The family of this 358-nucleotide RNA from Clostridiales bacterium S5-A14a is "Group I catalytic intron".
The literature on the family includes a 1990 paper in Annu Rev Biochem by Cech, "Self-splicing of group I introns".
About the family: Group I catalytic introns are large self-splicing ribozymes.
[Rfam]
Nucleotides: 358
Stems, first nucleotide, its partner, number of pairs: 006031002009028001011026001013024001036044002081294003086289002091227006101218003228251002235244002255337001257336005297323005303317001305315003343356005
Number, partner (000 for none) and nucleotide at each position: 001000g002000u003000u004000u005000u006031u007030g008000a009028u010000u011026a012000a013024u014000u015000u016000u017000a018000u019000a020000a021000u022000a023000u024013a025000g026011u027000c028009a029000a030007c031006a032000u033000a034000u035000a036044g037043g038000g039000a040000a041000a042000c043037u044036u045000g046000u047000a048000u049000g050000c051000a052000c053000u054000g055000a056000u057000u058000a059000a060000a061000g062000u063000u064000c065000c066000a067000a068000a069000u070000u071000a072000a073000c074000c075000a076000g077000u078000g079000a080000a081294c082293u083292a084000c085000u086289u087288g088000a089000a090000u091227u092226g093225c094224u095223a096222a097000a098000a099000u100000c101218c102217c103216c104000u105000a106000a107000a108000g109000c110000u111000a112000g113000g114000a115000u116000a117000a118000c119000u120000a121000c122000a123000a124000c125000g126000c127000u128000a129000g130000g131000a132000u133000g134000a135000g136000a137000u138000a139000c140000g141000c142000c143000u144000g145000a146000a147000c148000g149000u150000g151000a152000a153000u154000g155000u156000u157000g158000u159000g160000a161000a162000a163000a164000c165000g166000g167000a168000a169000a170000a171000a172000a173000u174000a175000u176000c177000u178000u179000a180000g181000a182000u183000g184000g185000u186000a187000c188000a189000u190000g191000g192000u193000u194000a195000a196000a197000u198000c199000c200000u201000a202000a203000a204000u205000a206000c207000u208000g209000u210000a211000a212000a213000a214000a215000u216103g217102g218101g219000c220000a221000a222096u223095u224094a225093g226092c227091a228251g229250c230000c231000a232000a233000g234000c235244u236243u237000u238000g239000a240000a241000g242000a243236g244235a245000a246000g247000a248000a249000g250229g251228u252000u253000c254000a255337a256000c257336g258335a259334c260333u261332a262000u263000u264000c265000u266000c267000a268000u269000a270000u271000g272000a273000g274000a275000a276000g277000u278000a279000g280000g281000a282000u283000g284000c285000a286000a287000g288087c289086g290000a291000u292083u293082g294081g295000c296000u297323u298322c299321c300320g301319a302000a303317g304000u305315g306314g307313g308000u309000a310000g311000a312000u313307c314306c315305c316000u317303c318000c319301u320300u321299g322298g323297g324000a325000u326000a327000a328000g329000a330000a331000a332261u333260a334259g335258u336257c337255u338000g339000u340000g341000c342000u343356c344355a345354u346353a347352u348000g349000a350000a351000a352347g353346u354345a355344u356343g357000a358000g